[Rfam]
RNA sequence: UACAUAUAUAUUGUAAGUCGCUUUGGAUAAAAGCGUCUGCUAAAUGUAAUGUA
Numbered sequence: 001u002a003c004a005u006a007u008a009u010a011u012u013g014u015a016a017g018u019c020g021c022u023u024u025g026g027a028u029a030a031a032a033g034c035g036u037c038u039g040c041u042a043a044a045u046g047u048a049a050u051g052u053a
Stems, first nucleotide, its partner, number of pairs: 012042001013040003019035006

Source information
UnaL2 LINE 3' element: a 53-nucleotide RNA sequence from Merluccius polli. From the family's description: The eel long interspersed element (LINE) UnaL2 and its partner short interspersed element (SINE) share a conserved 3' tail containing a stem-loop that is critical for their retrotransposition. The source organism's lineage runs through Eukaryota, Euteleostomi, Neopterygii, Merlucciidae and Merluccius. By type it is a cis-regulatory element. Pairs were carried over by alignment from the consensus structure, which is taken from published work. Rfam links the family to the GO term transposition, RNA-mediated.